[Rfam]
RNA sequence: GACAGAGGGAGCUCGACUCCCGUGCCGCGGGCGGCGUCGCCGUCCAACGCAUGAGGAAAGUCCCCCCACCGGCCGGACGGGCGACCGGGCGCAAGCCCGGAGCCGGAGACGGCUGGCGCUGGAACAGAAACGAGACCCCCUGCCCCGACCGAUGAGGCGUGCGAACCGACCCGCAAGGAGAGGGAGCUAACCCGCCGAGGGGCAUGCGACGUCUCACGUCGCAGACGGGCAGGAAGGGAUGGAACGGCGAAUCCUCGCCGGUGCAAGUCCGCGCCGAUAGGUAGUCCGGCCACGGCGCGGACGCUCAGCCGAAUGUCGAGCCGAACGGAAGGGGGCUUACUCCCCUCAGUC
Dot-bracket structure: (((.(((((((((((((...(((((.......................)))))....[[[.[[[[[((((.[[[[[[..((((((((((......)))))(((((....)))))((...(.(.............((((((((((...........((...................................))...............................)))))))..))).........).)..)))))))))))...(((((((((.........]]]]]]...)))))))))............))))))..........]]]]]]]].)).))))).)))
Shown here is a 351-nucleotide RNA sequence from Halopenitus malekzadehii, a member of the family "Archaeal RNase P". It is annotated as a ribozyme. NCBI's taxonomy places the organism under Archaea, Halobacteria, Halobacteriales, Haloferacaceae, Halopenitus. For this family Rfam cites "Ribonuclease P: unity and diversity in a tRNA processing ribozyme" (Frank and Pace, Annu Rev Biochem, 1998). The family's consensus secondary structure is taken from published work. About the family: Ribonuclease P (RNase P) is a ubiquitous endoribonuclease, found in archaea, bacteria and eukarya as well as chloroplasts and mitochondria.